[Rfam]
RNA sequence: UCAGGGCACCGCCUCCUCCGCGGGCGGUGCCGCCGUCCGCCGAUCCGUCGGACCACA
Number, nucleotide and partner (000 for none) at each position: 001u000002c000003a000004g000005g000006g025007c024008a000009c023010c022011g021012c020013c000014u000015c000016c000017u000018c000019c000020g012021c011022g010023g009024g007025c006026g000027g000028u000029g000030c000031c000032g000033c051034c050035g049036u000037c047038c000039g000040c000041c000042g000043a000044u000045c000046c000047g037048u000049c035050g034051g033052a000053c000054c000055a000056c000057a000
RNA: sul1 RNA